RNA: SAM riboswitch aptamer (S box leader)
RNA sequence: AUCUUAUCAAGAGUGGUGGAGGGACUGGCCCUAUGAAACCCGGCAACCAAAUGAUUACUUAUCAUUUAUGGUGCUAAAUCCUGCAACUUAUGGAGUUGAUAGAUGAGAG
Number, nucleotide and partner (000 for none) at each position: 001a000002u108003c107004u106005u105006a104007u103008c102009a000010a000011g000012a000013g041014u000015g040016g039017u038018g000019g000020a000021g031022g030023g029024a000025c083026u000027g081028g080029c023030c022031c021032u000033a000034u000035g000036a000037a000038a017039c016040c015041c013042g075043g074044c073045a072046a000047c071048c070049a067050a066051a065052u064053g063054a062055u000056u000057a000058c000059u000060u000061a000062u054063c053064a052065u051066u050067u049068a000069u000070g048071g047072u045073g044074c043075u042076a000077a000078a000079u101080c028081c027082u000083g025084c098085a097086a096087c095088u094089u093090a000091u000092g000093g089094a088095g087096u086097u085098g084099a000100u000101a079102g008103a007104u006105g005106a004107g003108a002109g000